[Rfam]
RNA: mir-203 microRNA precursor family
Organism: Pogona vitticeps
RNA sequence: CCCCCUUGGGUGCAGUGGUUCUUAACAGUUCAACAGUUCUGUACCAUAAUUGUGAAAUGUUUAGGACCACUUCAUCCGGA
Numbered sequence: 001c002c003c004c005c006u007u008g009g010g011u012g013c014a015g016u017g018g019u020u021c022u023u024a025a026c027a028g029u030u031c032a033a034c035a036g037u038u039c040u041g042u043a044c045c046a047u048a049a050u051u052g053u054g055a056a057a058u059g060u061u062u063a064g065g066a067c068c069a070c071u072u073c074a075u076c077c078g079g080a
Stems, first nucleotide, its partner, number of pairs: 014071006021064002024061004029056004